[Rfam]
RNA sequence: AAAGUCCUGAUGUGUUCGUUCUACACCUAGUUUUGACCUAACAUUAAUUCUACGGGAGCUCAUGUUUCUUUACAGAGUAAAUGCCUUAUCUACGGUAAAGAGGACUUACAUACGUAAAGAACAGAGCACCCACCUGCUGAGUGCGGGAUCAAAACGAGGGAAUCGUAUGACGGCACAAUCGGGACUACA
Numbered sequence: 001a002a003a004g005u006c007c008u009g010a011u012g013u014g015u016u017c018g019u020u021c022u023a024c025a026c027c028u029a030g031u032u033u034u035g036a037c038c039u040a041a042c043a044u045u046a047a048u049u050c051u052a053c054g055g056g057a058g059c060u061c062a063u064g065u066u067u068c069u070u071u072a073c074a075g076a077g078u079a080a081a082u083g084c085c086u087u088a089u090c091u092a093c094g095g096u097a098a099a100g101a102g103g104a105c106u107u108a109c110a111u112a113c114g115u116a117a118a119g120a121a122c123a124g125a126g127c128a129c130c131c132a133c134c135u136g137c138u139g140a141g142u143g144c145g146g147g148a149u150c151a152a153a154a155c156g157a158g159g160g161a162a163u164c165g166u167a168u169g170a171c172g173g174c175a176c177a178a179u180c181g182g183g184a185c186u187a188c189a
Stems, first nucleotide, its partner, number of pairs: 003186009012176004017172003030155003034151003037147002054131003058127004065121001067120007079107002084103004
RNA: 6S / SsrS RNA